Shown here is a 59-nucleotide sequence from Streptomyces cinnamoneus, a member of the family "msiK RNA". The family's RNA type in Rfam is cis-regulatory element. A search with the family's covariance model found it, with a score of 51 bits.
RNA sequence: GACCACAUUCCCUCUACUCGGAUCGUCCGGCACGUUCCUGCCGGUGAAGGGACUCAUCA
Number, nucleotide and partner (000 for none) at each position: 001g000002a000003c000004c000005a000006c000007a000008u000009u000010c051011c050012c049013u048014c000015u046016a045017c000018u000019c000020g000021g000022a000023u000024c000025g000026u000027c044028c043029g042030g041031c040032a039033c000034g000035u000036u000037c000038c000039u032040g031041c030042c029043g028044g027045u016046g015047a000048a013049g012050g011051g010052a000053c000054u000055c000056a000057u000058c000059a000